[Rfam]
RNA sequence: AAGAAGAUUUUAAUACUUCAAUUUGUAUACUUGGAGAAUUUGAAGACUUCAACUUGCAUACUUAGAGAUUUUUGAAGACUUCAUCU
Numbered sequence: 001a002a003g004a005a006g007a008u009u010u011u012a013a014u015a016c017u018u019c020a021a022u023u024u025g026u027a028u029a030c031u032u033g034g035a036g037a038a039u040u041u042g043a044a045g046a047c048u049u050c051a052a053c054u055u056g057c058a059u060a061c062u063u064a065g066a067g068a069u070u071u072u073u074g075a076a077g078a079c080u081u082c083a084u085c086u
Base pairs, nucleotide, nucleotide: 001084003082004081005080006079008076009075010074012072013071016067017066018065020063024058025057026056027055031052032051033050034049035048036047